[Rfam]
RNA sequence: UGAGCAGGGAUGUACCGGUCUGUGCUAUAAGCAAUGCACUUUUAAUCCAAAAGAGUUCCUUGCAACAUAAAACUGUGGAGGAUGGGCAGUUGUGUUUCAAGAUUUAAGAUAGAGAAUCAUUCUCCUCUAGUUGAGAUUUCCCCACAAUCAUCCUCUGUAUAUUA
Numbered sequence: 001u002g003a004g005c006a007g008g009g010a011u012g013u014a015c016c017g018g019u020c021u022g023u024g025c026u027a028u029a030a031g032c033a034a035u036g037c038a039c040u041u042u043u044a045a046u047c048c049a050a051a052a053g054a055g056u057u058c059c060u061u062g063c064a065a066c067a068u069a070a071a072a073c074u075g076u077g078g079a080g081g082a083u084g085g086g087c088a089g090u091u092g093u094g095u096u097u098c099a100a101g102a103u104u105u106a107a108g109a110u111a112g113a114g115a116a117u118c119a120u121u122c123u124c125c126u127c128u129a130g131u132u133g134a135g136a137u138u139u140c141c142c143c144a145c146a147a148u149c150a151u152c153c154u155c156u157g158u159a160u161a162u163u164a
Base pairs, nucleotide, nucleotide: 004063005062006061007060008059009058010057011038012037013036014035075158076157077156078155079154080153081152082151083150084149085148089145090144092142